This 172-nucleotide RNA from Mumia sp. ZJ1417 belongs to the Rfam family "Actinobacteria sRNA Ms_IGR-5".

[Rfam]
RNA sequence: ACACAGGAAGGAGGUGGUCCGGAGAAUGAUUGACUUCAGGACAAGUGAGGUGGCUGUCCGCUAGCCACGGUGCAGGGACCACCCGCAUCGCGCGGCGAAUCCCAGCAGCCACCCGACCCGCGGGGGCCGAGAUGUUGUCCACUCGGUAUCCAACCCCCGCGGGUCGUCCUUU
Numbered sequence: 001a002c003a004c005a006g007g008a009a010g011g012a013g014g015u016g017g018u019c020c021g022g023a024g025a026a027u028g029a030u031u032g033a034c035u036u037c038a039g040g041a042c043a044a045g046u047g048a049g050g051u052g053g054c055u056g057u058c059c060g061c062u063a064g065c066c067a068c069g070g071u072g073c074a075g076g077g078a079c080c081a082c083c084c085g086c087a088u089c090g091c092g093c094g095g096c097g098a099a100u101c102c103c104a105g106c107a108g109c110c111a112c113c114c115g116a117c118c119c120g121c122g123g124g125g126g127c128c129g130a131g132a133u134g135u136u137g138u139c140c141a142c143u144c145g146g147u148a149u150c151c152a153a154c155c156c157c158c159g160c161g162g163g164u165c166g167u168c169c170u171u172u
Stems, first nucleotide, its partner, number of pairs: 013058006059097004064093002068090003072086002114166013127146005
Taxonomically the source falls in Mumia (Bacteria, Bacillati, Actinomycetota, Actinomycetes). Pairs were carried over by alignment from the consensus structure.